[Rfam]
Nucleotides: 070
Stems, first nucleotide, its partner, number of pairs: 001069004013034003017030003
Number, partner (000 for none) and nucleotide at each position: 001069g002068a003067g004066u005000c006000a007000u008000g009000a010000u011000g012000g013034a014033a015032a016000g017030g018029u019028u020000u021000u022000a023000c024000u025000c026000u027000u028019g029018a030017c031000a032015u033014u034013u035000a036000c037000a038000a039000c040000u041000a042000u043000g044000a045000a046000g047000a048000u049000u050000u051000c052000u053000a054000c055000a056000c057000u058000u059000g060000a061000u062000c063000u064000g065000a066004g067003c068002u069001c070000a